[Rfam]
The record is a 93-nucleotide sequence from Branchiostoma floridae, which matches "mir-2060 microRNA precursor family" in Rfam. The match comes from Rfam's covariance-model search (67 bits). The base pairs follow the family's consensus structure, which was predicted with RNAalifold. The family has 7 seed sequences and 3,696 matches in Rfam 15.1.
RNA sequence: AAAGGCCUUUGUGUAGAAGUUGUUCAGUGACAGUACAGGCUCGUUCGCCUGUGUGUGGAUGGUGUUCAGCACCAGGGAAAGGCCUGUAUGCCU
Numbered sequence: 001a002a003a004g005g006c007c008u009u010u011g012u013g014u015a016g017a018a019g020u021u022g023u024u025c026a027g028u029g030a031c032a033g034u035a036c037a038g039g040c041u042c043g044u045u046c047g048c049c050u051g052u053g054u055g056u057g058g059a060u061g062g063u064g065u066u067c068a069g070c071a072c073c074a075g076g077g078a079a080a081g082g083c084c085u086g087u088a089u090g091c092c093u
Stems, first nucleotide, its partner, number of pairs: 004084007019073001021071004026066004031061002033054001035052006